[Rfam]
RNA sequence: GAUUCAUCGAUCCCAACGAUCAACAAACUUUUAAUUUGCAAGUUUGUUCGUUCGGCUCGAGUUAUCA
Numbered sequence: 001g002a003u004u005c006a007u008c009g010a011u012c013c014c015a016a017c018g019a020u021c022a023a024c025a026a027a028c029u030u031u032u033a034a035u036u037u038g039c040a041a042g043u044u045u046g047u048u049c050g051u052u053c054g055g056c057u058c059g060a061g062u063u064a065u066c067a
Stems, first nucleotide, its partner, number of pairs: 001066003005061001008059003012055002017050002023047004028042002